[Rfam]
RNA: Hepatitis C virus (HCV) cis-acting replication element (CRE)
RNA sequence: CCAUUGCCGUCCGCGGCCCAGCUGGAUUUAUCCGGCUGGUUCACGAGCGGAUACAGCGGGGGAGACGUAUAUCACAGCGCGUCUCGAGCCCGGCCCCGCUGGUAUUUCUUUUGCCUACUCCUACUUUCAGUAGGGGUAGGCAUCUACCUCCUCCCCAACCGAUGAACGGUUGGGUAA
Numbered sequence: 001c002c003a004u005u006g007c008c009g010u011c012c013g014c015g016g017c018c019c020a021g022c023u024g025g026a027u028u029u030a031u032c033c034g035g036c037u038g039g040u041u042c043a044c045g046a047g048c049g050g051a052u053a054c055a056g057c058g059g060g061g062g063a064g065a066c067g068u069a070u071a072u073c074a075c076a077g078c079g080c081g082u083c084u085c086g087a088g089c090c091c092g093g094c095c096c097c098g099c100u101g102g103u104a105u106u107u108c109u110u111u112u113g114c115c116u117a118c119u120c121c122u123a124c125u126u127u128c129a130g131u132a133g134g135g136g137u138a139g140g141c142a143u144c145u146a147c148c149u150c151c152u153c154c155c156c157a158a159c160c161g162a163u164g165a166a167c168g169g170u171u172g173g174g175u176a177a
Stems, first nucleotide, its partner, number of pairs: 007050004012045002016041001018039009055100007062085006112142013150174003155169002